[Rfam]
RNA sequence: CAGAAAUGGGGGCUCCUUUAAGGACAAAGAAAGCAUUUUGGAUCGUCUUUUCGCUCAUUAGAGCAGUCAUCCUUUGGACUGAAGGGAGCCCCUCUUUCUU
Numbered sequence: 001c002a003g004a005a006a007u008g009g010g011g012g013c014u015c016c017u018u019u020a021a022g023g024a025c026a027a028a029g030a031a032a033g034c035a036u037u038u039u040g041g042a043u044c045g046u047c048u049u050u051u052c053g054c055u056c057a058u059u060a061g062a063g064c065a066g067u068c069a070u071c072c073u074u075u076g077g078a079c080u081g082a083a084g085g086g087a088g089c090c091c092c093u094c095u096u097u098c099u100u
Base pairs, nucleotide, nucleotide: 008093009092010091011090012089013088014087015086016085017084018083022080023079025077027075028074029073
Rfam assigns this 100-nucleotide sequence from Amborella trichopoda to the family "MIR319 microRNA precursor family".
Lineage of the source: Eukaryota > Streptophyta > Amborellales > Amborellaceae > Amborella.
Rfam links the family to the GO terms miRNA-mediated post-transcriptional gene silencing and RISC complex.